[Rfam]
Rfam assigns this 85-nucleotide RNA from Propionispira arboris to the family "c-di-GMP-I riboswitch aptamer". GEMM was predicted in a large-scale screen for bacterial structured RNA regulatory elements.

RNA sequence: GUUCAUAUGGAGCAAACUUAUUGAAAGAUAAGGACGCAAAGCCCUGGGUCUAAAGAUUUAUAUCUAUGAUUGCCUGGCUGCAUUC
Numbered sequence: 001g002u003u004c005a006u007a008u009g010g011a012g013c014a015a016a017c018u019u020a021u022u023g024a025a026a027g028a029u030a031a032g033g034a035c036g037c038a039a040a041g042c043c044c045u046g047g048g049u050c051u052a053a054a055g056a057u058u059u060a061u062a063u064c065u066a067u068g069a070u071u072g073c074c075u076g077g078c079u080g081c082a083u084u085c
Base pairs, nucleotide, nucleotide: 012037013036017032018031019030020029021028022027040079041078042077043076046074047073048070049069050068055064056063057062